[Rfam]
RNA sequence: AAAAUAAAGGAGCAAAAAUCAUCUUCUUGAUACAACAAGAAGGUGAUAUUGCUCCUUUAU
Numbered sequence: 001a002a003a004a005u006a007a008a009g010g011a012g013c014a015a016a017a018a019u020c021a022u023c024u025u026c027u028u029g030a031u032a033c034a035a036c037a038a039g040a041a042g043g044u045g046a047u048a049u050u051g052c053u054c055c056u057u058u059a060u
Stems, first nucleotide, its partner, number of pairs: 006058010017047001022043001024041006